Annotation
A member of the RNA family "mir-459 microRNA precursor family" from Myripristis murdjan, 81 nucleotides long. Its family is annotated with miRNA-mediated post-transcriptional gene silencing and RISC complex in the Gene Ontology. Pairs were carried over by alignment from the consensus structure, which was predicted with RNAalifold. It scores 79 bits against the family's covariance model.

[Rfam]
RNA sequence: CCGGUCGCCGUCAGUAACAAGGAUUCAUCCUGUUGUGAUGCUGGAGGCCGACAGGAAAUCACUGUUACUGGGGGCGCGGGU
Number, nucleotide and partner (000 for none) at each position: 001c000002c000003g000004g000005u000006c000007g000008c000009c000010g000011u071012c070013a069014g068015u067016a066017a065018c064019a063020a000021g000022g060023a059024u058025u057026c000027a000028u000029c055030c054031u053032g052033u051034u050035g049036u000037g048038a000039u046040g000041c000042u000043g000044g000045a000046g039047g000048c037049c035050g034051a033052c032053a031054g030055g029056a000057a025058a024059u023060c022061a000062c000063u019064g018065u017066u016067a015068c014069u013070g012071g011072g000073g000074g000075c000076g000077c000078g000079g000080g000081u000